[Rfam]
Notes: Rfam assigns this 102-nucleotide RNA sequence from Leptolyngbya sp. 'hensonii' to the family "Group II catalytic intron D1-D4-1".
RNA sequence: CAGCAUGGGCGUGAACUUAAACGCUCUGGGUGAUGGAGCAGAAGUCAGCAGAGGUCGUAGUAGCCAAACGCUCAUCGUAAUGGGUGGGAUAGGGUGAAGGAC
Numbered sequence: 001c002a003g004c005a006u007g008g009g010c011g012u013g014a015a016c017u018u019a020a021a022c023g024c025u026c027u028g029g030g031u032g033a034u035g036g037a038g039c040a041g042a043a044g045u046c047a048g049c050a051g052a053g054g055u056c057g058u059a060g061u062a063g064c065c066a067a068a069c070g071c072u073c074a075u076c077g078u079a080a081u082g083g084g085u086g087g088g089a090u091a092g093g094g095u096g097a098a099g100g101a102c
Stems, first nucleotide, its partner, number of pairs: 001032002004029001007026005045052002054102003063095003